[Rfam]
RNA sequence: AGAGGUCAUAAGUGUGAGGCCAUAGCAGAAGCGUUCAUGGUGCAGCUGUGUCAUAUUCCAGUAAAUUUAGCAAAUUCUGCU
Numbered sequence: 001a002g003a004g005g006u007c008a009u010a011a012g013u014g015u016g017a018g019g020c021c022a023u024a025g026c027a028g029a030a031g032c033g034u035u036c037a038u039g040g041u042g043c044a045g046c047u048g049u050g051u052c053a054u055a056u057u058c059c060a061g062u063a064a065a066u067u068u069a070g071c072a073a074a075u076u077c078u079g080c081u
Stems, first nucleotide, its partner, number of pairs: 013048001018047003024081007031043003052070001053068001055066003
This 81-nucleotide RNA from Crocodylus porosus belongs to the Rfam family "Mammalian CPEB3 ribozyme". Rfam links the family to the GO term RNA nuclease activity. The match comes from Rfam's covariance-model search (37 bits). The family's consensus secondary structure is taken from published work. Rfam describes the family as follows. The mammalian CPEB3 ribozyme is a self cleaving RNA located in the second intron of the CPEB3 gene which belongs to a family of genes regulating messenger RNA polyadenylation. This ribozyme is highly conserved and found only in mammals. The CPEB3 ribozyme is structurally and biochemically related to the human hepatitis delta virus (HDV) ribozyme and the HDV ribozyme is proposed to have arisen from the human transcriptome. There is currently only one other known self cleaving ribozyme in mammals, the CoTC motif. Taxonomically the source falls in Crocodylus (Eukaryota, Eumetazoa, Vertebrata, Euteleostomi).